[Rfam]
RNA sequence: GAUUGGUUCGAAAGCAGUGAGUUAUCUCCAAUUGAUUUUACGCAGUCAAUUACAGAUUGGACUCCUAGUUCUACUCUUUCCCCCUUUUAUUACUGCACUUCAUUAGUCAUAA
Numbered sequence: 001g002a003u004u005g006g007u008u009c010g011a012a013a014g015c016a017g018u019g020a021g022u023u024a025u026c027u028c029c030a031a032u033u034g035a036u037u038u039u040a041c042g043c044a045g046u047c048a049a050u051u052a053c054a055g056a057u058u059g060g061a062c063u064c065c066u067a068g069u070u071c072u073a074c075u076c077u078u079u080c081c082c083c084c085u086u087u088u089a090u091u092a093c094u095g096c097a098c099u100u101c102a103u104u105a106g107u108c109a110u111a112a
Base pairs, nucleotide, nucleotide: 001108002107003106004105005104006103007102010100011099014096015095016091017090018089019088020087021086044075045074046073048072
RNA: Y RNA